[Rfam]
About this RNA:
c-di-GMP-II-GAG riboswitch aptamer: a 102-nucleotide RNA sequence from Bellilinea caldifistulae. A search with the family's covariance model found it, with a score of 47 bits. A reference for the family is Weinberg et al. (2017), "Bioinformatic analysis of riboswitch structures uncovers variant classes with altered ligand specificity", Proc Natl Acad Sci U S A.
RNA sequence: AGACGAAUUGGAGGCGUUGAAGCGUAUGUCAUAAUCUGGUCGCUUCUCUCGGUUAUGAGAGGGGCAUACGCAGAGCCAGUAGCGAAACCGGCCACACCAGUA
Numbered sequence: 001a002g003a004c005g006a007a008u009u010g011g012a013g014g015c016g017u018u019g020a021a022g023c024g025u026a027u028g029u030c031a032u033a034a035u036c037u038g039g040u041c042g043c044u045u046c047u048c049u050c051g052g053u054u055a056u057g058a059g060a061g062g063g064g065c066a067u068a069c070g071c072a073g074a075g076c077c078a079g080u081a082g083c084g085a086a087a088c089c090g091g092c093c094a095c096a097c098c099a100g101u102a
Stems, first nucleotide, its partner, number of pairs: 002101001005098001009094003013077003022071008038089002040085005

Taxonomically the source falls in Bellilinea (Bacteria, Chloroflexota, Anaerolineales, Anaerolineaceae).